Rfam assigns this 381-nucleotide RNA from Vreelandella subglaciescola to the family "transfer-messenger RNA". It is annotated as a non-coding RNA gene. About the family: Bacterial tmRNA, also known as 10Sa RNA or SsrA, is named for its dual tRNA and mRNA-like properties. The base pairs follow the family's consensus structure, which is taken from published work. Lineage of the source: Bacteria > Pseudomonadati > Pseudomonadota > Halomonadaceae > Vreelandella.

[Rfam]
RNA sequence: GGGGGCGACAUGGUAUCGACGCCGAUAACAACCCCUGCGGUGCAUGCCGAGAGCGUGAUGUAUCUCGUAAAUCCAACAUCACGAAAAAUAGUCGCAAACGACGAAAACUACGCUCAGGGCGCGCUGGCAGCUUAAUAGCUGUUAGCUUCUUGUCCGGCUCCAAAGUGAUGUGCCUGUCCAUGACGGCGGAGAUACGAGCCAAAAAUGAUAGGACCGCAGUUGGUGGCGUCUUCUCGCCAACUGUUAAACUUAAAGAAGACUCGCGUAGCUGAAUCCUGAUCGUCGGAGUCAGUCGCGCUAAACUAAAAGACGAAAUCUAAGCAUGUAGAGCCAAUGGGCGAGUGUUGGCGGACGCGGGUUCAAUUCCCGCCGCCUCCACCA
Numbered sequence: 001g002g003g004g005g006c007g008a009c010a011u012g013g014u015a016u017c018g019a020c021g022c023c024g025a026u027a028a029c030a031a032c033c034c035c036u037g038c039g040g041u042g043c044a045u046g047c048c049g050a051g052a053g054c055g056u057g058a059u060g061u062a063u064c065u066c067g068u069a070a071a072u073c074c075a076a077c078a079u080c081a082c083g084a085a086a087a088a089u090a091g092u093c094g095c096a097a098a099c100g101a102c103g104a105a106a107a108c109u110a111c112g113c114u115c116a117g118g119g120c121g122c123g124c125u126g127g128c129a130g131c132u133u134a135a136u137a138g139c140u141g142u143u144a145g146c147u148u149c150u151u152g153u154c155c156g157g158c159u160c161c162a163a164a165g166u167g168a169u170g171u172g173c174c175u176g177u178c179c180a181u182g183a184c185g186g187c188g189g190a191g192a193u194a195c196g197a198g199c200c201a202a203a204a205a206u207g208a209u210a211g212g213a214c215c216g217c218a219g220u221u222g223g224u225g226g227c228g229u230c231u232u233c234u235c236g237c238c239a240a241c242u243g244u245u246a247a248a249c250u251u252a253a254a255g256a257a258g259a260c261u262c263g264c265g266u267a268g269c270u271g272a273a274u275c276c277u278g279a280u281c282g283u284c285g286g287a288g289u290c291a292g293u294c295g296c297g298c299u300a301a302a303c304u305a306a307a308a309g310a311c312g313a314a315a316u317c318u319a320a321g322c323a324u325g326u327a328g329a330g331c332c333a334a335u336g337g338g339c340g341a342g343u344g345u346u347g348g349c350g351g352a353c354g355c356g357g358g359u360u361c362a363a364u365u366c367c368c369g370c371c372g373c374c375u376c377c378a379c380c381a
Base pairs, nucleotide, nucleotide: 001377002376003375004374005373006372007371020350021349022348023347024346025345026344027343033338034337035336039332040331041330043325044324045323046322047321048067049066050065051064052063054083055082056081057080058079059078060077123146124145125144126143127142128141129140130139131138149198150197151196152195153194158191159190160189161188173212174211175210176209177208178207217243218242219241220240221239222238228260229259230258231257232256233255263298264297265296266295268293269292270291271290272289274287275286276285278317279316280315282311283310284309354370355369356368357367358366